c-di-GMP-I-GGC riboswitch aptamer: an 85-nucleotide sequence from Alkaliphilus sp. Taxonomically the source falls in Alkaliphilus (Bacteria, Bacillati, Clostridia, Peptostreptococcales).
[Rfam]
RNA sequence: AACGACAAGGGCAAACCAUCCGAAAGGGUGGGACGCAAAGCCAAAGGGCCUUUCACAAAAGUGAAUGGUAGCCUAGCCACCGAAA
Numbered sequence: 001a002a003c004g005a006c007a008a009g010g011g012c013a014a015a016c017c018a019u020c021c022g023a024a025a026g027g028g029u030g031g032g033a034c035g036c037a038a039a040g041c042c043a044a045a046g047g048g049c050c051u052u053u054c055a056c057a058a059a060a061g062u063g064a065a066u067g068g069u070a071g072c073c074u075a076g077c078c079a080c081c082g083a084a085a
Stems, first nucleotide, its partner, number of pairs: 003082002011036002016031006034071001040077002045074003048069003
The family's consensus secondary structure is taken from published work.